[Rfam]
RNA sequence: AAAAUUUCAGGGCAAAUCCAUCUAAAGGUGGAGACGCAAAGCCGUAGGGUCUAAGGCACUUUGUGCUAUGAUUGCCUGGCGGCCAAA
Numbered sequence: 001a002a003a004a005u006u007u008c009a010g011g012g013c014a015a016a017u018c019c020a021u022c023u024a025a026a027g028g029u030g031g032a033g034a035c036g037c038a039a040a041g042c043c044g045u046a047g048g049g050u051c052u053a054a055g056g057c058a059c060u061u062u063g064u065g066c067u068a069u070g071a072u073u074g075c076c077u078g079g080c081g082g083c084c085a086a087a
Base pairs, nucleotide, nucleotide: 012037013036017032018031019030020029021028022027041080042079043078046077047076048075049072050071051070056066057065058064059063
RNA: c-di-GMP-I riboswitch aptamer